[Rfam]
RNA: ZMP/ZTP riboswitch aptamer (pfl RNA motif)
RNA sequence: AUGAAGUCAUAUGACUGACGGAAGUGGAGUAUACCACAUGAAGUAUGACUAAGAUAAUAUGCCGACCGUCUGGGCAAUAAGC
Numbered sequence: 001a002u003g004a005a006g007u008c009a010u011a012u013g014a015c016u017g018a019c020g021g022a023a024g025u026g027g028a029g030u031a032u033a034c035c036a037c038a039u040g041a042a043g044u045a046u047g048a049c050u051a052a053g054a055u056a057a058u059a060u061g062c063c064g065a066c067c068g069u070c071u072g073g074g075c076a077a078u079a080a081g082c
Stems, first nucleotide, its partner, number of pairs: 005050008015040001017070005024037004060076004